[Rfam]
RNA sequence: UCCCGUCUGACACUCUUUCCCUGUUGCACUACUGUGGGAGCUGCAGCAAGCAGUGCAAUAAUGAAAGGGCAUCAGCCCUGAG
Numbered sequence: 001u002c003c004c005g006u007c008u009g010a011c012a013c014u015c016u017u018u019c020c021c022u023g024u025u026g027c028a029c030u031a032c033u034g035u036g037g038g039a040g041c042u043g044c045a046g047c048a049a050g051c052a053g054u055g056c057a058a059u060a061a062u063g064a065a066a067g068g069g070c071a072u073c074a075g076c077c078c079u080g081a082g
Base pairs, nucleotide, nucleotide: 001082003080005077007075008074009073010072013069014068015067016066017065018064019063022060023059024058025057026056027055028054029053030052
Shown here is an 82-nucleotide RNA from Salarias fasciatus, a member of the family "mir-130 microRNA precursor family". The family's consensus secondary structure was predicted with PFOLD. A reference for the family is Lagos-Quintana et al. (2002), "Identification of tissue-specific microRNAs from mouse", Curr Biol. Taxonomically the source falls in Salarias (Eukaryota, Vertebrata, Teleostei, Salariinae). The match comes from Rfam's covariance-model search (50 bits). Its family is annotated with RISC complex and miRNA-mediated post-transcriptional gene silencing in the Gene Ontology.